[Rfam]
RNA sequence: UGAAGCGGCAAGAAUUAGAAGCAGUUUUGGUGUCAGACACACUCACUGACUCACUGCUUCUUGUUUUUCUUCUUCUUCU
Dot-bracket structure: ...((.((.((((((.(((((((((....((((...))))............))))))))).)))))).)).)).....